[Rfam]
RNA sequence: CUGUUGAUAGAAUAGGUUCCUCUAGUUCUAGUCGUGGAACCUUCACUUAAGGUGCAAAAAUCAAAAGCUGUUGUGCAGCGUCAGCCAGACAACCGUAGAGAUGGAUCCACAGAUGAUUUGUUUGCAAUACUUCUCAUCUACUAAAUCUAUCUCACACUU
Numbered sequence: 001c002u003g004u005u006g007a008u009a010g011a012a013u014a015g016g017u018u019c020c021u022c023u024a025g026u027u028c029u030a031g032u033c034g035u036g037g038a039a040c041c042u043u044c045a046c047u048u049a050a051g052g053u054g055c056a057a058a059a060a061u062c063a064a065a066a067g068c069u070g071u072u073g074u075g076c077a078g079c080g081u082c083a084g085c086c087a088g089a090c091a092a093c094c095g096u097a098g099a100g101a102u103g104g105a106u107c108c109a110c111a112g113a114u115g116a117u118u119u120g121u122u123u124g125c126a127a128u129a130c131u132u133c134u135c136a137u138c139u140a141c142u143a144a145a146u147c148u149a150u151c152u153c154a155c156a157c158u159u
Base pairs, nucleotide, nucleotide: 001054006048007047010044011043014042015041016040017039018038019037020036022034024032098153099152100151101150102149103148104147105146115133116132119129120128121127
The family of this 159-nucleotide RNA sequence from Musa balbisiana is "small nucleolar RNA snoR143". Its family is annotated with nucleolus and RNA processing in the Gene Ontology. NCBI's taxonomy places the organism under Eukaryota, Streptophytina, Mesangiospermae, Liliopsida, Musa. Pairs were carried over by alignment from the consensus structure, which was predicted with RNAalifold. On this family, see Chen and Wu, Nucleic Acids Res 2009: "Mining small RNA sequencing data: a new approach to identify small nucleolar RNAs in Arabidopsis". Rfam 15.1 lists 660 matches to the family in 212 species.